[Rfam]
RNA sequence: CAAAGAUAAAGGCAAAACCUUUGAAAAAAGGUGACGCAAAGCCAUGGGUCUAACGUCCUUACGGACCAUGAUCGCCAGGCCGCCAAG
Number, nucleotide and partner (000 for none) at each position: 001c000002a000003a000004a000005g000006a000007u000008a000009a000010a000011g000012g037013c036014a000015a000016a000017a032018c031019c030020u029021u028022u027023g000024a000025a000026a000027a022028a021029a020030g019031g018032u017033g000034a000035c000036g013037c012038a000039a000040a000041g080042c079043c078044a000045u077046g076047g075048g072049u071050c070051u000052a000053a000054c000055g066056u065057c064058c063059u000060u000061a000062c000063g058064g057065a056066c055067c000068a000069u000070g050071a049072u048073c000074g000075c047076c046077a045078g043079g042080c041081c000082g000083c000084c000085a000086a000087g000
The record is an 87-nucleotide RNA from Paenibacillus beijingensis, which matches "c-di-GMP-I riboswitch aptamer" in Rfam.